The record is a 101-nucleotide sequence from Herbaspirillum seropedicae, which matches "Guanidine-I riboswitch aptamer" in Rfam.
For this family Rfam cites "New RNA motifs suggest an expanded scope for riboswitches in bacterial genetic control" (Barrick et al., Proc Natl Acad Sci U S A, 2004).
Its family is annotated with regulation of gene expression in the Gene Ontology.
Pairs were carried over by alignment from the consensus structure.

RNA sequence: CAAAUAGCUGGCUAGGGUUCCGGUCUGCCGCAGGCAGAUGACUGGUCCGAGAGCCGGCGACCUCGGUCGAGGUUACACGGCGGGACAAAAGCCCGGGAGAG
Numbered sequence: 001c002a003a004a005u006a007g008c009u010g011g012c013u014a015g016g017g018u019u020c021c022g023g024u025c026u027g028c029c030g031c032a033g034g035c036a037g038a039u040g041a042c043u044g045g046u047c048c049g050a051g052a053g054c055c056g057g058c059g060a061c062c063u064c065g066g067u068c069g070a071g072g073u074u075a076c077a078c079g080g081c082g083g084g085a086c087a088a089a090a091g092c093c094c095g096g097g098a099g100a101g
Stems, first nucleotide, its partner, number of pairs: 007058006015048002020045002022042001023039006059074006076096001078099001082094003